[Rfam]
RNA sequence: ACGGUCGAGAGGCGCUGCAGCGGGCACAUGCCCGCCACGCUCGACCGAUGGCCAUUGCACAAGGGCGCCUGACUCGG
Numbered sequence: 001a002c003g004g005u006c007g008a009g010a011g012g013c014g015c016u017g018c019a020g021c022g023g024g025c026a027c028a029u030g031c032c033c034g035c036c037a038c039g040c041u042c043g044a045c046c047g048a049u050g051g052c053c054a055u056u057g058c059a060c061a062a063g064g065g066c067g068c069c070u071g072a073c074u075c076g077g
Stems, first nucleotide, its partner, number of pairs: 002047007021034005